[Rfam]
RNA sequence: AGCCCUUCGUCGUUCAACUCAAAAUAAGAUCAAGUGUAGUAUCUGUUCUUAUCAGCUUAAUAUCUGAUAUGUUAGGCAAUGCCUAACUCAUAUAUUAAACUGAUUUUUGGACUUUGGCCAUGGGAUUGAAGCUUGCUUUGCCCUGGCCACGGGUGGUCUCGGUAUUGCACUACAUCCGAGUACGGCCCCUUCCCC
Numbered sequence: 001a002g003c004c005c006u007u008c009g010u011c012g013u014u015c016a017a018c019u020c021a022a023a024a025u026a027a028g029a030u031c032a033a034g035u036g037u038a039g040u041a042u043c044u045g046u047u048c049u050u051a052u053c054a055g056c057u058u059a060a061u062a063u064c065u066g067a068u069a070u071g072u073u074a075g076g077c078a079a080u081g082c083c084u085a086a087c088u089c090a091u092a093u094a095u096u097a098a099a100c101u102g103a104u105u106u107u108u109g110g111a112c113u114u115u116g117g118c119c120a121u122g123g124g125a126u127u128g129a130a131g132c133u134u135g136c137u138u139u140g141c142c143c144u145g146g147c148c149a150c151g152g153g154u155g156g157u158c159u160c161g162g163u164a165u166u167g168c169a170c171u172a173c174a175u176c177c178g179a180g181u182a183c184g185g186c187c188c189c190u191u192c193c194c195c
Base pairs, nucleotide, nucleotide: 002025050069051068052067053066054065055064071087072086073085074084075083076082077081116148117147118146119145120144122142123141128139129138130137131136151188152187153186154185156183158180159179160178161177162176
Shown here is a 195-nucleotide RNA sequence from Paramuricea clavata, a member of the family "U2 spliceosomal RNA".
The family's RNA type in Rfam is spliceosomal small nuclear RNA.
Lineage of the source: Eukaryota > Opisthokonta > Anthozoa > Malacalcyonacea > Paramuricea.
The family has 208 seed sequences and 71,512 matches in Rfam 15.1.
A search with the family's covariance model found it, with a score of 145 bits.